The family of this 132-nucleotide sequence from Tupaia belangeri is "Small nucleolar RNA SNORA63". Taxonomically the source falls in Tupaia belangeri (Eukaryota, Craniata, Tetrapoda, Tupaia). Rfam classes the family as an H/ACA-box small nucleolar RNA. E3 belongs to the H/ACA class of snoRNAs and is involved in the processing of eukaryotic pre-rRNA and has regions of complementarity to 18S rRNA. E3 is encoded in introns in the gene for protein synthesis initiation factor 4AII. A reference for the family is Mishra and Eliceiri (1997), "Three small nucleolar RNAs that are involved in ribosomal RNA precursor processing", Proc Natl Acad Sci U S A.
[Rfam]
RNA sequence: GAGCCGGAUUCAGACCACAAUAUAGCUGUUAAGCGCUGUGUUGUCAUUCCCCCUGCUCAAAAUAAAGUUGUUUCUUAACUAUACCUGUCUACUAUACUCAUAUAGCAGCCAGGGAUGCUUGGUCUCAUACAC
Numbered sequence: 001g002a003g004c005c006g007g008a009u010u011c012a013g014a015c016c017a018c019a020a021u022a023u024a025g026c027u028g029u030u031a032a033g034c035g036c037u038g039u040g041u042u043g044u045c046a047u048u049c050c051c052c053c054u055g056c057u058c059a060a061a062a063u064a065a066a067g068u069u070g071u072u073u074c075u076u077a078a079c080u081a082u083a084c085c086u087g088u089c090u091a092c093u094a095u096a097c098u099c100a101u102a103u104a105g106c107a108g109c110c111a112g113g114g115a116u117g118c119u120u121g122g123u124c125u126c127a128u129a130c131a132c
Stems, first nucleotide, its partner, number of pairs: 003056002006053002017044010084113004089108002092105001